[Rfam]
RNA sequence: UGGCUCUGGUUUCUCUUCAAAACGCACAAGUCUUUUGUCUUUUACUAAAGACUGCGGUGAUGAGGAAUGCUGGCGAGUUGAUUUGAUUUUUGGCAGGCUCUGCCUGUGGGCCA
Numbered sequence: 001u002g003g004c005u006c007u008g009g010u011u012u013c014u015c016u017u018c019a020a021a022a023c024g025c026a027c028a029a030g031u032c033u034u035u036u037g038u039c040u041u042u043u044a045c046u047a048a049a050g051a052c053u054g055c056g057g058u059g060a061u062g063a064g065g066a067a068u069g070c071u072g073g074c075g076a077g078u079u080g081a082u083u084u085g086a087u088u089u090u091u092g093g094c095a096g097g098c099u100c101u102g103c104c105u106g107u108g109g110g111c112c113a
Stems, first nucleotide, its partner, number of pairs: 003078004009068007017060003029053007096112005
Overview
The family of this 113-nucleotide RNA sequence from Betta splendens is "U5 spliceosomal RNA". From the family's description: U5 RNA is a component of both types of known spliceosome. The precise function of this molecule is unknown, though it is known that the 5' loop is required for splice site selection and p220 binding, and that both the 3' stem-loop and the Sm site are important for Sm protein binding and cap methylation. For this family Rfam cites "The uRNA database" (Zwieb, Nucleic Acids Res, 1997). The family has 180 seed sequences and 28,527 matches in Rfam 15.1. NCBI's taxonomy places the organism under Eukaryota, Gnathostomata, Acanthomorphata, Anabantiformes, Betta.